c-di-GMP-I riboswitch aptamer: an 82-nucleotide RNA from Emergencia timonensis.
RNA sequence: UUGAAUAUUUGGUAAACCUGUCGAAAGGCAGUGACACAAAGCUAUAGGGCCUUCCCUUUACGGAUGGCAGCCAGUUGCACAA
Numbered sequence: 001u002u003g004a005a006u007a008u009u010u011g012g013u014a015a016a017c018c019u020g021u022c023g024a025a026a027g028g029c030a031g032u033g034a035c036a037c038a039a040a041g042c043u044a045u046a047g048g049g050c051c052u053u054c055c056c057u058u059u060a061c062g063g064a065u066g067g068c069a070g071c072c073a074g075u076u077g078c079a080c081a082a
Stems, first nucleotide, its partner, number of pairs: 012037002018031005040076004047072002049068003053064003

Overview
A search with the family's covariance model found it, with a score of 56 bits. Taxonomically the source falls in Emergencia (Bacteria, Bacillota, Clostridia, Peptostreptococcales). The family's consensus secondary structure is taken from published work.